This 200-nucleotide RNA sequence from Setaria italica belongs to the Rfam family "MIR1435 microRNA precursor family". Its family is annotated with miRNA-mediated post-transcriptional gene silencing and RISC complex in the Gene Ontology.
[Rfam]
RNA sequence: UAGCUUUGUCCUAAGUCGAACUUGUCUAAGUUUGACCAAGUCUAUAGGAAAAAAUAUUAACAUCUAUAAUAUCAAAUAAAUGCACAAUGAAAAUGUACUUCAUGGUCUAUCUAGUGAAACUAGUUUAAUGUUGAAAAUAUUUAUGCCUUUUUACAUAAAAUUGGUCAAAGAUAAAGAAGUUUGACUUAGGACAAAGCUAA
Numbered sequence: 001u002a003g004c005u006u007u008g009u010c011c012u013a014a015g016u017c018g019a020a021c022u023u024g025u026c027u028a029a030g031u032u033u034g035a036c037c038a039a040g041u042c043u044a045u046a047g048g049a050a051a052a053a054a055u056a057u058u059a060a061c062a063u064c065u066a067u068a069a070u071a072u073c074a075a076a077u078a079a080a081u082g083c084a085c086a087a088u089g090a091a092a093a094u095g096u097a098c099u100u101c102a103u104g105g106u107c108u109a110u111c112u113a114g115u116g117a118a119a120c121u122a123g124u125u126u127a128a129u130g131u132u133g134a135a136a137a138u139a140u141u142u143a144u145g146c147c148u149u150u151u152u153a154c155a156u157a158a159a160a161u162u163g164g165u166c167a168a169a170g171a172u173a174a175a176g177a178a179g180u181u182u183g184a185c186u187u188a189g190g191a192c193a194a195a196g197c198u199a200a
Base pairs, nucleotide, nucleotide: 005195006194007193008192009191011189012188013187014186015185016184017183018182019181020180021179022178023177025175031169032168033167034166035165047154049152050151051150052149053148055145056144057143059141060140062138063137065135067133068132072128074126075125076124077123